[Rfam]
RNA sequence: CCUGUGAAUCCAGACACGCUGUUGCUCAGUACUCGUGUGUGUGUAAUUCCGGAGGUAGAAACAAGCCAGUGCUCUGUCUUCGGUGCCGGCGUGUUCUCAUAUGCCGGUAUCGUGUAACGCUGGUACACGA
Number, nucleotide and partner (000 for none) at each position: 001c052002c051003u000004g000005u000006g000007a000008a000009u000010c000011c041012a040013g000014a038015c037016a036017c000018g034019c000020u000021g032022u031023u000024g000025c000026u000027c000028a000029g000030u000031a022032c021033u000034c018035g000036u016037g015038u014039g000040u012041g011042u000043g000044u000045a000046a000047u000048u000049c000050c000051g002052g001053a000054g000055g000056u000057a000058g000059a000060a000061a000062c000063a000064a000065g000066c000067c122068a121069g120070u119071g118072c000073u000074c000075u000076g000077u000078c000079u000080u000081c000082g000083g000084u000085g000086c107087c106088g105089g104090c103091g102092u101093g000094u000095u000096c000097u000098c000099a000100u000101a092102u091103g090104c089105c088106g087107g086108u000109a000110u000111c000112g000113u000114g000115u000116a000117a000118c071119g070120c069121u068122g067123g000124u000125a000126c000127a000128c000129g000130a000

The family of this 130-nucleotide sequence from Muraenolepis orangiensis is "Small nucleolar RNA SNORA57". A search with the family's covariance model found it, with a score of 45 bits. The source organism's lineage runs through Eukaryota, Opisthokonta, Euteleostomi, Teleostei and Muraenolepis. The family has 26 seed sequences and 1,736 matches in Rfam 15.1. Rfam classes the family as an H/ACA-box small nucleolar RNA. Pairs were carried over by alignment from the consensus structure, which was predicted with PFOLD.